Shown here is a 194-nucleotide RNA from Brachypodium distachyon, a member of the family "mir-166 microRNA precursor family".
RNA sequence: UUUGAGGGGAAUGUUGUCUGGCUCGGGGUUCUCUUUAUUUCUAUGCCUCUCUCUAUCCCCCCCUCCUCAAUCUCUCUAGCUUUGAUUGGAUCGAGAGAAGAUCGAUCGAUCGAUCCAAGAAGAGUUCUGAGAAGGGGGAUGAAGAGAGUAGACGUAUGUGUGUAGAUCUCGGACCAGGCUUCAUUCCCCCCAAA
Numbered sequence: 001u002u003u004g005a006g007g008g009g010a011a012u013g014u015u016g017u018c019u020g021g022c023u024c025g026g027g028g029u030u031c032u033c034u035u036u037a038u039u040u041c042u043a044u045g046c047c048u049c050u051c052u053c054u055a056u057c058c059c060c061c062c063c064u065c066c067u068c069a070a071u072c073u074c075u076c077u078a079g080c081u082u083u084g085a086u087u088g089g090a091u092c093g094a095g096a097g098a099a100g101a102u103c104g105a106u107c108g109a110u111c112g113a114u115c116c117a118a119g120a121a122g123a124g125u126u127c128u129g130a131g132a133a134g135g136g137g138g139a140u141g142a143a144g145a146g147a148g149u150a151g152a153c154g155u156a157u158g159u160g161u162g163u164a165g166a167u168c169u170c171g172g173a174c175c176a177g178g179c180u181u182c183a184u185u186c187c188c189c190c191c192a193a194a
Stems, first nucleotide, its partner, number of pairs: 001194004006189008016179006024171007
Source information: The family has 31 seed sequences and 2,599 matches in Rfam 15.1. About the family: This family represents the plant microRNA (miRNA) precursor mir-166. Taxonomically the source falls in Brachypodium (Eukaryota, Embryophyta, Spermatophyta, Magnoliopsida).